[Rfam]
This 190-nucleotide sequence from Rhipicephalus microplus belongs to the Rfam family "U2 spliceosomal RNA". By type it is a spliceosomal small nuclear RNA. U2 is a small nuclear RNA (snRNA) component of the spliceosome (involved in pre-mRNA splicing). On this family, see Zwieb, Nucleic Acids Res 1997: "The uRNA database". Rfam links the family to the GO terms U2 snRNP, mRNA branch site recognition and pre-mRNA branch point binding.

RNA sequence: AUUUCUUGCACUGUCUUGAACAUAAUAAAGGAUACACUCUGAUCUUAUCAGCUUAAUAUCUGAUAUGGAUCCCGGAUGGAUUCAAGAUAUUAAACUUAAUUUUGUGAUGCGGCGGAGUGCUUGAAGGUUGCUUCACCUCCGCCACGGGUUGGCCCCGUAUUGCACUACCUCCGGGAUCGGCCCACUCCCU
Numbered sequence: 001a002u003u004u005c006u007u008g009c010a011c012u013g014u015c016u017u018g019a020a021c022a023u024a025a026u027a028a029a030g031g032a033u034a035c036a037c038u039c040u041g042a043u044c045u046u047a048u049c050a051g052c053u054u055a056a057u058a059u060c061u062g063a064u065a066u067g068g069a070u071c072c073c074g075g076a077u078g079g080a081u082u083c084a085a086g087a088u089a090u091u092a093a094a095c096u097u098a099a100u101u102u103u104g105u106g107a108u109g110c111g112g113c114g115g116a117g118u119g120c121u122u123g124a125a126g127g128u129u130g131c132u133u134c135a136c137c138u139c140c141g142c143c144a145c146g147g148g149u150u151g152g153c154c155c156c157g158u159a160u161u162g163c164a165c166u167a168c169c170u171c172c173g174g175g176a177u178c179g180g181c182c183c184a185c186u187c188c189c190u
Stems, first nucleotide, its partner, number of pairs: 007025001046065006067083006111143007123134004146183006153175003157171001